[Rfam]
RNA sequence: AGCUCGACCGGAUCCACCGCGCGGGUCACCACCAAGUAGUCACGCAACGCGGUGCUGUGCCGGUUCUC
Numbered sequence: 001a002g003c004u005c006g007a008c009c010g011g012a013u014c015c016a017c018c019g020c021g022c023g024g025g026u027c028a029c030c031a032c033c034a035a036g037u038a039g040u041c042a043c044g045c046a047a048c049g050c051g052g053u054g055c056u057g058u059g060c061c062g063g064u065u066c067u068c
Stems, first nucleotide, its partner, number of pairs: 004063003008059001011030001013028001016026003035056004040052002043049002
RNA: ASdes TB sRNA
Organism: Mycobacterium kansasii